[Rfam]
Annotation:
This 35-nucleotide sequence from Paenibacillus massiliensis belongs to the Rfam family "L31-Firmicutes ribosomal protein leader". It is one of the family's seed sequences. On this family, see Eckert and Weinberg, BMC Microbiol 2020: "Discovery of 20 novel ribosomal leader candidates in bacteria and archaea". It is annotated as a cis-regulatory leader.
RNA sequence: CUCUGGGUGGACUAAGAAACUCAGGGCGGAAAGAG
Numbered sequence: 001c002u003c004u005g006g007g008u009g010g011a012c013u014a015a016g017a018a019a020c021u022c023a024g025g026g027c028g029g030a031a032a033g034a035g
Base pairs, nucleotide, nucleotide: 001026002025003024004023005022006021007020008019